[Rfam]
RNA sequence: GGGCGAGGACGACCUCCCCAUCACGGGCAGAACCGCCGGGACGACCCGG
Numbered sequence: 001g002g003g004c005g006a007g008g009a010c011g012a013c014c015u016c017c018c019c020a021u022c023a024c025g026g027g028c029a030g031a032a033c034c035g036c037c038g039g040g041a042c043g044a045c046c047c048g049g
Base pairs, nucleotide, nucleotide: 002019003018005016006015007014008013036049037048038047039046040045
This 49-nucleotide sequence from Paracoccus sigandri belongs to the Rfam family "Guanidine-II riboswitch aptamer (mini-ykkC)". A search with the family's covariance model found it, with a score of 39 bits. The source organism's lineage runs through Bacteria, Pseudomonadati, Alphaproteobacteria, Rhodobacterales and Paracoccus. Rfam 15.1 lists 1,589 matches to the family in 1,229 species.